A member of the RNA family "Hepatitis C alternative reading frame stem-loop" from Orthohepacivirus hominis, 136 nucleotides long. The literature on the family includes a 2016 paper in Mol Cell by Pirakitikulr et al., "The Coding Region of the HCV Genome Contains a Network of Regulatory RNA Structures". The family's RNA type in Rfam is cis-regulatory element. It is one of the family's seed sequences. Gene Ontology term of the family: regulation of translation.
RNA sequence: AACCGCCGCCCAAUGGACGUUAAGUUCCCGGGUGGUGGCCAGAUCGUUGGCGGAGUUUACUUGUUGCCGCGCAGGGGCCCCAGAUUGGGUGUGCGCGCGACUCGGAAGACUUCGGAGCGGUCGCAACCUCGUGGAA
Dot-bracket structure: ..(((((((((...((((.....))))..)))))))))...(((((((.(.((.((((.((.(....((((((...((((......)))).))))))...)..)).))))))).).))))))..............
Numbered sequence: 001a002a003c004c005g006c007c008g009c010c011c012a013a014u015g016g017a018c019g020u021u022a023a024g025u026u027c028c029c030g031g032g033u034g035g036u037g038g039c040c041a042g043a044u045c046g047u048u049g050g051c052g053g054a055g056u057u058u059a060c061u062u063g064u065u066g067c068c069g070c071g072c073a074g075g076g077g078c079c080c081c082a083g084a085u086u087g088g089g090u091g092u093g094c095g096c097g098c099g100a101c102u103c104g105g106a107a108g109a110c111u112u113c114g115g116a117g118c119g120g121u122c123g124c125a126a127c128c129u130c131g132u133g134g135a136a
Stems, first nucleotide, its partner, number of pairs: 003038009015027004042122006048115001050113001052112002055110004060105002063101001068097006077090004